RNA: epsC RNA
Organism: Bacillus oleivorans
RNA sequence: CGGUGAUGCCUCCUGACCGCUAUCAAAGGAGACACUCGGCCAUACCGUGGGCGGAAUACCAUGAUUUCGCCUUAGACGCCCGUUGUCAAGGGUAUGGUGUGAGGGCGGGUUAGAUGCCCA
Dot-bracket structure: ((((..[[.[[[[..))))........]]]].]]((((((((((((..((((((((........))))))))..((((.....))))...)))))))).))))...((((.....)))).